[Rfam]
Nucleotides: 087
Stems, first nucleotide, its partner, number of pairs: 004084002012074006020067007028059006037050005
Number, partner (000 for none) and nucleotide at each position: 001000a002000g003000a004084g005083g006000a007000c008000c009000u010000c011000c012074g013073u014072a015071g016070c017069c018000g019000g020067g021066g022065u023064g024063g025062g026061a027000a028059g029058c030057u031056u032055g033054c034000c035000u036000c037050g038049u039048c040047g041046c042000c043000g044000c045000g046041g047040c048039g049038a050037c051000g052000a053000a054033g055032c056031a057030a058029g059028c060000a061026u062025u063024c064023c065022g066021c067020c068000a069017g070016g071015c072014u073013g074012c075000u076000c077000a078000c079000g080000c081000u082000g083005c084004c085000c086000a087000c